RNA sequence: GACUGUCUAUGACGUUAAAACACUAAAUCCCUGCCUGGGAUGUGUUUUAAUUGAUUUUAGUC
Numbered sequence: 001g002a003c004u005g006u007c008u009a010u011g012a013c014g015u016u017a018a019a020a021c022a023c024u025a026a027a028u029c030c031c032u033g034c035c036u037g038g039g040a041u042g043u044g045u046u047u048u049a050a051u052u053g054a055u056u057u058u059a060g061u062c
Stems, first nucleotide, its partner, number of pairs: 001062003014051010029039003
A member of the RNA family "Selenocysteine insertion sequence 1" from Mytilus coruscus, 62 nucleotides long. Pairs were carried over by alignment from the consensus structure, which is taken from published work. The family has 61 seed sequences and 3,793 matches in Rfam 15.1.